Annotation: This 80-nucleotide RNA sequence from Mauremys mutica belongs to the Rfam family "mir-16 microRNA precursor family". The literature on the family includes a 2020 paper in Mol Cell by Jin et al., "Structural Basis for pri-miRNA Recognition by Drosha". It scores 49 bits against the family's covariance model. Rfam links the family to the GO terms RISC complex and miRNA-mediated post-transcriptional gene silencing. Clan: mir-15 clan.
RNA sequence: GGCACCUUAUAGACUAACAGAAGUAUUGGAGCAUAAGCUUUCAUAUAUACUCCAAUACUUCUGUUAGUCUAUAAGGUGCC
Numbered sequence: 001g002g003c004a005c006c007u008u009a010u011a012g013a014c015u016a017a018c019a020g021a022a023g024u025a026u027u028g029g030a031g032c033a034u035a036a037g038c039u040u041u042c043a044u045a046u047a048u049a050c051u052c053c054a055a056u057a058c059u060u061c062u063g064u065u066a067g068u069c070u071a072u073a074a075g076g077u078g079c080c
Base pairs, nucleotide, nucleotide: 001080002079003078005076006075007074010073011070012069013068014067015066016065017064018063020060022059023058024057025056026055027054028053029052